[Rfam]
RNA sequence: GGUAGAGAGAGCCCGGCCACCGCUGCCCCUCGCGGGGCGAGCGAGGAAAGUCCCCCCACCGUCCGGGCAGGCGACUGGACGCAAGUCCAGAGCGGGAGACCGCUGGCGCUGGAACAGAAACGACACCCCUCACCGCGAGCAAGGACGCGCGCGAACCGACCCGCGAGGGAAGGGAGUUAACCCGCAGAGCGCUGACCGGUGAGAACGGAUGGAACGGCGAAUCCUCGCCGGUGCAAGUCCACGCCACAAGGUAGCCCGGACACGGACGUGGACGCUCAGCCGAAUGCCGGGCCGAACAGAAGGGGGCUUACUCCUCUCAACC
Numbered sequence: 001g002g003u004a005g006a007g008a009g010a011g012c013c014c015g016g017c018c019a020c021c022g023c024u025g026c027c028c029c030u031c032g033c034g035g036g037g038c039g040a041g042c043g044a045g046g047a048a049a050g051u052c053c054c055c056c057c058a059c060c061g062u063c064c065g066g067g068c069a070g071g072c073g074a075c076u077g078g079a080c081g082c083a084a085g086u087c088c089a090g091a092g093c094g095g096g097a098g099a100c101c102g103c104u105g106g107c108g109c110u111g112g113a114a115c116a117g118a119a120a121c122g123a124c125a126c127c128c129c130u131c132a133c134c135g136c137g138a139g140c141a142a143g144g145a146c147g148c149g150c151g152c153g154a155a156c157c158g159a160c161c162c163g164c165g166a167g168g169g170a171a172g173g174g175a176g177u178u179a180a181c182c183c184g185c186a187g188a189g190c191g192c193u194g195a196c197c198g199g200u201g202a203g204a205a206c207g208g209a210u211g212g213a214a215c216g217g218c219g220a221a222u223c224c225u226c227g228c229c230g231g232u233g234c235a236a237g238u239c240c241a242c243g244c245c246a247c248a249a250g251g252u253a254g255c256c257c258g259g260a261c262a263c264g265g266a267c268g269u270g271g272a273c274g275c276u277c278a279g280c281c282g283a284a285u286g287c288c289g290g291g292c293c294g295a296a297c298a299g300a301a302g303g304g305g306g307c308u309u310a311c312u313c314c315u316c317u318c319a320a321c322c
Stems, first nucleotide, its partner, number of pairs: 001322003005318005010312002012291006021043004048309003052306005057233004062260006070229005075090005091104005105224002110220001112218001126208002129203007147185002237273007244265002
Shown here is a 322-nucleotide sequence from Halorubellus sp. JP-L1, a member of the family "Archaeal RNase P". Ribonuclease P (RNase P) is a ubiquitous endoribonuclease, found in archaea, bacteria and eukarya as well as chloroplasts and mitochondria. Its best characterised activity is the generation of mature 5'-ends of tRNAs by cleaving the 5'-leader elements of precursor-tRNAs. Cellular RNase Ps are ribonucleoproteins. RNA from bacterial RNase Ps retains its catalytic activity in the absence of the protein subunit, i.e. it is a ribozyme. A reference for the family is Frank and Pace (1998), "Ribonuclease P: unity and diversity in a tRNA processing ribozyme", Annu Rev Biochem. Clan: RNaseP clan. The base pairs follow the family's consensus structure, which is taken from published work. The organism belongs to Halorubellus, within Archaea. Rfam classes the family as a ribozyme.